A member of the RNA family "Early nodulin 40" from Dendrobium nobile, 248 nucleotides long.
RNA sequence: AUGAUACUAGUCGAGGAUCUCUGGCAGGAAUCCAUGCAUGGAUCUUGAGGGGUGGACAGUACUAUGGAGUGAUCUGGAGGGAUGAAAUAUGCGACGUAAUUCCCACCCCUCCAAUCUCUCCUCUGUUGUGUUCUGCUCAUGCUGCAGCUGAUAGCUAGGCUUGUCUAACUCGGCAAAAGCUUCCAGCCCAAGGCAUGGCAGACCGGCAAGUCACAAAACGGCGAUGGUAAGCUCCAUGUAGGGGCUUG
Dot-bracket structure: .................................................................(((.........................................)))......((..(.............((.....................................................))....)..))...........................(((((.......)))))..
Numbered sequence: 001a002u003g004a005u006a007c008u009a010g011u012c013g014a015g016g017a018u019c020u021c022u023g024g025c026a027g028g029a030a031u032c033c034a035u036g037c038a039u040g041g042a043u044c045u046u047g048a049g050g051g052g053u054g055g056a057c058a059g060u061a062c063u064a065u066g067g068a069g070u071g072a073u074c075u076g077g078a079g080g081g082a083u084g085a086a087a088u089a090u091g092c093g094a095c096g097u098a099a100u101u102c103c104c105a106c107c108c109c110u111c112c113a114a115u116c117u118c119u120c121c122u123c124u125g126u127u128g129u130g131u132u133c134u135g136c137u138c139a140u141g142c143u144g145c146a147g148c149u150g151a152u153a154g155c156u157a158g159g160c161u162u163g164u165c166u167a168a169c170u171c172g173g174c175a176a177a178a179g180c181u182u183c184c185a186g187c188c189c190a191a192g193g194c195a196u197g198g199c200a201g202a203c204c205g206g207c208a209a210g211u212c213a214c215a216a217a218a219c220g221g222c223g224a225u226g227g228u229a230a231g232c233u234c235c236a237u238g239u240a241g242g243g244g245c246u247u248g
Stems, first nucleotide, its partner, number of pairs: 066112003119202002123198001137193002230246005
Gene Ontology term of the family: nodulation. Pairs were carried over by alignment from the consensus structure, which is taken from published work.